[Rfam]
RNA sequence: CCAACUUCUUCUGAACUCUCUCCCUCAACUGCUACUCUAGAUCUUGCCAAUCCCUGUCAAGUGUUUCUGUGUAGCAGUCGAGGUGAGAGGUUCAGGAAAUGUUGG
Numbered sequence: 001c002c003a004a005c006u007u008c009u010u011c012u013g014a015a016c017u018c019u020c021u022c023c024c025u026c027a028a029c030u031g032c033u034a035c036u037c038u039a040g041a042u043c044u045u046g047c048c049a050a051u052c053c054c055u056g057u058c059a060a061g062u063g064u065u066u067c068u069g070u071g072u073a074g075c076a077g078u079c080g081a082g083g084u085g086a087g088a089g090g091u092u093c094a095g096g097a098a099a100u101g102u103u104g105g
Stems, first nucleotide, its partner, number of pairs: 001105005009097008018089005023083004028078008037069001040066002043063001